[Rfam]
RNA sequence: GGAUGUGAGGGCGAUCUGGCUGCGACAUCUGUCACCCCAUUGAUCGCCAGGGUUAAUUCGGCUGAUCUGGCUGGCUAGGCGGGUGUCCCCUUCCUCCCUCACCGCUCCAUGUGCGUCCCUCCCGAAGCUGCGCGCUCGGUCGAAGAGGACGACCUUCCCUGCUAGAGGAGGACCGGUCUUCGGUCAAGGGUAUACGAGUAGCUGCGCUCCCCUGAUAGAACCUCCAAACAAGCUCUCAAAGCUGUAAUCAAAGGCUAGAGUGAAGUGAGAGAGGGUAAUUUAGUAAAAUGGGUGGUGGAAGCAGCUGGUGGAGCUGCCUAAAAUC
Number, nucleotide and partner (000 for none) at each position: 001g108002g107003a106004u000005g102006u101007g100008a099009g098010g097011g096012c000013g093014a092015u000016c000017u000018g090019g089020c000021u000022g000023c000024g087025a086026c085027a084028u083029c082030u081031g080032u079033c078034a000035c074036c073037c070038c069039a068040u000041u000042g067043a066044u065045c064046g062047c061048c060049a000050g000051g000052g000053u000054u000055a000056a000057u000058u000059c000060g048061g047062c046063u000064g045065a044066u043067c042068u039069g038070g037071c000072u000073g036074g035075c000076u000077a000078g033079g032080c031081g030082g029083g028084u027085g026086u025087c024088c000089c019090c018091u000092u014093c013094c000095u000096c011097c010098c009099u008100c007101a006102c005103c000104g000105c000106u003107c002108c001109a000110u000111g000112u000113g000114c000115g000116u171117c170118c168119c167120u166121c165122c139123c138124g137125a136126a000127g135128c134129u000130g000131c000132g000133c000134g128135c127136u125137c124138g123139g122140u000141c161142g160143a000144a000145g000146a000147g158148g157149a156150c000151g000152a000153c000154c000155u000156u149157c148158c147159c000160u142161g141162c000163u000164a000165g121166a120167g119168g118169a000170g117171g116172a000173c000174c000175g000176g000177u000178c000179u000180u000181c000182g000183g000184u000185c000186a000187a000188g000189g000190g000191u000192a000193u000194a000195c000196g000197a000198g000199u000200a000201g314202c313203u312204g000205c000206g000207c311208u310209c000210c308211c307212c000213u000214g306215a000216u000217a000218g000219a000220a000221c000222c301223u300224c000225c298226a000227a000228a296229c295230a000231a293232g000233c000234u000235c000236u000237c000238a000239a000240a000241g000242c000243u000244g000245u000246a000247a000248u000249c000250a000251a000252a000253g000254g000255c000256u000257a000258g000259a000260g000261u000262g000263a000264a000265g000266u000267g000268a000269g000270a000271g000272a000273g000274g000275g000276u000277a000278a000279u000280u000281u000282a000283g000284u000285a000286a000287a000288a000289u000290g000291g000292g000293u231294g000295g229296u228297g000298g225299a000300a223301g222302c000303a000304g000305c000306u214307g211308g210309u000310g208311g207312a203313g202314c201315u000316g000317c000318c000319u000320a000321a000322a000323a000324u000325c000
A member of the RNA family "7SK RNA" from Propithecus coquereli, 325 nucleotides long. About the family: 7SK was discovered as an abundant small nuclear RNA in the mid-70s but a possible function has only recently been suggested. Two independent studies have found that 7SK RNA binds the CDK9/cyclin T complex (known as elongation factor P-TEFb). Rfam 15.1 lists 49,373 matches to the family in 668 species. Its Rfam clan is "7SK clan".